[Rfam]
About this RNA:
Shown here is a 139-nucleotide sequence from Echinops telfairi, a member of the family "Small nucleolar RNA SNORA29". Rfam classes the family as an H/ACA-box small nucleolar RNA. Taxonomically the source falls in Echinops (Eukaryota, Deuterostomia, Craniata, Teleostomi).
RNA sequence: GUUCCCAUGUGACUACCACUUCAACUCUUAAUAAUAGAUUGUAGUGGCUAUGCUUGUGGGAUAGAGUGAUUUUUGCCAUGAUCUGAAGAGGGAGGUUUAUUGUGUCCUCCUCCUAUAUGAAAUGGCUGUACAGAAAAUG
Numbered sequence: 001g002u003u004c005c006c007a008u009g010u011g012a013c014u015a016c017c018a019c020u021u022c023a024a025c026u027c028u029u030a031a032u033a034a035u036a037g038a039u040u041g042u043a044g045u046g047g048c049u050a051u052g053c054u055u056g057u058g059g060g061a062u063a064g065a066g067u068g069a070u071u072u073u074u075g076c077c078a079u080g081a082u083c084u085g086a087a088g089a090g091g092g093a094g095g096u097u098u099a100u101u102g103u104g105u106c107c108u109c110c111u112c113c114u115a116u117a118u119g120a121a122a123u124g125g126c127u128g129u130a131c132a133g134a135a136a137a138u139g
Stems, first nucleotide, its partner, number of pairs: 004060004016047004075126004093114003